The record is a 390-nucleotide part of an RNA from a Nitrosopumilaceae archaeon, which matches "Archaeal large subunit ribosomal RNA" in Rfam. It scores 2658 bits against the family's covariance model. Rfam links the family to the GO terms structural constituent of ribosome and ribosome.
RNA sequence: GGCAGUAACAGCAUAGCAUGGUGAGAAUCCAUGCCACCGAAAGCGCAAGGGUUUCCAGGCAAUGCGUUAUCAGCCUGGAGUUAGUCGAUCCUAAGGCCCGCCUCAACAGAGCGGGUCGAAAGGGAAACCAGUUAAUAUUCUGGUACCCUGCAUGGAGCGUCUGAACCGUAUGGCUUGCUUCCGGAUAGGGGUCGUACAACCGUCGUUGUAUCCAACCGUUCGAGGGCCGGGGAGUGUCGUAAUGACGAGAACCGGCGCGAGGCGGGAGUGGCUCCGCGUUAGCGGAGUUUCCCCGGUUCCAGGAGACCGUGAAAGGCCGUGCGGCUAGCAAAGUGCAGGCUCGUACCCAGAUCCGACACAGGUGCGCAGGCUUAGAAAGCCAAGGUGCUA
Numbered sequence: 001g002g003c004a005g006u007a008a009c010a011g012c013a014u015a016g017c018a019u020g021g022u023g024a025g026a027a028u029c030c031a032u033g034c035c036a037c038c039g040a041a042a043g044c045g046c047a048a049g050g051g052u053u054u055c056c057a058g059g060c061a062a063u064g065c066g067u068u069a070u071c072a073g074c075c076u077g078g079a080g081u082u083a084g085u086c087g088a089u090c091c092u093a094a095g096g097c098c099c100g101c102c103u104c105a106a107c108a109g110a111g112c113g114g115g116u117c118g119a120a121a122g123g124g125a126a127a128c129c130a131g132u133u134a135a136u137a138u139u140c141u142g143g144u145a146c147c148c149u150g151c152a153u154g155g156a157g158c159g160u161c162u163g164a165a166c167c168g169u170a171u172g173g174c175u176u177g178c179u180u181c182c183g184g185a186u187a188g189g190g191g192u193c194g195u196a197c198a199a200c201c202g203u204c205g206u207u208g209u210a211u212c213c214a215a216c217c218g219u220u221c222g223a224g225g226g227c228c229g230g231g232g233a234g235u236g237u238c239g240u241a242a243u244g245a246c247g248a249g250a251a252c253c254g255g256c257g258c259g260a261g262g263c264g265g266g267a268g269u270g271g272c273u274c275c276g277c278g279u280u281a282g283c284g285g286a287g288u289u290u291c292c293c294c295g296g297u298u299c300c301a302g303g304a305g306a307c308c309g310u311g312a313a314a315g316g317c318c319g320u321g322c323g324g325c326u327a328g329c330a331a332a333g334u335g336c337a338g339g340c341u342c343g344u345a346c347c348c349a350g351a352u353c354c355g356a357c358a359c360a361g362g363u364g365c366g367c368a369g370g371c372u373u374a375g376a377a378a379g380c381c382a383a384g385g386u387g388c389u390a
Stems, first nucleotide, its partner, number of pairs: 016034006035387004043367004049347002054079006063072002086343003090123002095117006102109002127144005147339007172317001178305004183300003188294004194211005216265004226256005236246003277282001353362002369381003